[Rfam]
RNA sequence: CUUAAAACUUCUGGAAAGUCUCAGUUCAUCGAGACACCGACGGUGUAAAUUUAGUCUACUAGUUCCUAGUUACCUAGUCUGCUAGUCAACUGAAUGAAUCUCUCAGGUCCAAUUACAGAGGGCGCGCA
Numbered sequence: 001c002u003u004a005a006a007a008c009u010u011c012u013g014g015a016a017a018g019u020c021u022c023a024g025u026u027c028a029u030c031g032a033g034a035c036a037c038c039g040a041c042g043g044u045g046u047a048a049a050u051u052u053a054g055u056c057u058a059c060u061a062g063u064u065c066c067u068a069g070u071u072a073c074c075u076a077g078u079c080u081g082c083u084a085g086u087c088a089a090c091u092g093a094a095u096g097a098a099u100c101u102c103u104c105a106g107g108u109c110c111a112a113u114u115a116c117a118g119a120g121g122g123c124g125c126g127c128a
Stems, first nucleotide, its partner, number of pairs: 008121006019034004036108003039104002043102001045100001049095007
The family of this 128-nucleotide sequence from an Anaerolineales bacterium is "Glycine riboswitch aptamer". Gene Ontology term of the family: glycine biosynthetic process. The match comes from Rfam's covariance-model search (49 bits).